This 52-nucleotide RNA sequence from Rhodobacteraceae bacterium WD3A24 belongs to the Rfam family "ffh sRNA".
[Rfam]
RNA sequence: UCGAGCCGGGAUCGCCGCCCGCCAGCGAGUUUCGCCCGUGGGUGCCGUUGGG
Numbered sequence: 001u002c003g004a005g006c007c008g009g010g011a012u013c014g015c016c017g018c019c020c021g022c023c024a025g026c027g028a029g030u031u032u033c034g035c036c037c038g039u040g041g042g043u044g045c046c047g048u049u050g051g052g
Stems, first nucleotide, its partner, number of pairs: 016044007025035004